[Rfam]
RNA sequence: AAUGAAUGAUGACAAAUUGUUUCGGUCCCAGAUGACACGAAAUGAUUUUAAUUUUCCCAUUUUCUGACAUU
Dot-bracket structure: ((((...............................................................))))